[Rfam]
RNA sequence: UUGCCCAACGGGGCCGUGGAUACCUGCCUUUUAAUUCUU
Numbered sequence: 001u002u003g004c005c006c007a008a009c010g011g012g013g014c015c016g017u018g019g020a021u022a023c024c025u026g027c028c029u030u031u032u033a034a035u036u037c038u039u
Stems, first nucleotide, its partner, number of pairs: 003014004017026003

XIST RNA A repeat: a 39-nucleotide sequence. The sequence is in the family's curated seed alignment. For this family Rfam cites "The Xist RNA A-repeat comprises a novel AUCG tetraloop fold and a platform for multimerization" (Duszczyk et al., RNA, 2011). Rfam 15.1 lists 900 matches to the family in 145 species.